[Rfam]
RNA sequence: UUAUAGCCCUGAUAGUAGCGGCAUCCUUUUCUUGACUUUUUAGGAAAGAAAAGAUAUAGCGAAUAGCAGGAAAUAGC
Numbered sequence: 001u002u003a004u005a006g007c008c009c010u011g012a013u014a015g016u017a018g019c020g021g022c023a024u025c026c027u028u029u030u031c032u033u034g035a036c037u038u039u040u041u042a043g044g045a046a047a048g049a050a051a052a053g054a055u056a057u058a059g060c061g062a063a064u065a066g067c068a069g070g071a072a073a074u075a076g077c
Stems, first nucleotide, its partner, number of pairs: 009069003013065002018060002023055003029050005036044002
Record summary:
A member of the RNA family "Flavo-1 RNA" from Flavobacterium sp. ALD4, 77 nucleotides long. Rfam 15.1 lists 7,497 matches to the family in 411 species. The family's consensus secondary structure is taken from published work. The match comes from Rfam's covariance-model search (74 bits). The source organism's lineage runs through Bacteria, Bacteroidota, Flavobacteriia, Flavobacteriales and Flavobacterium.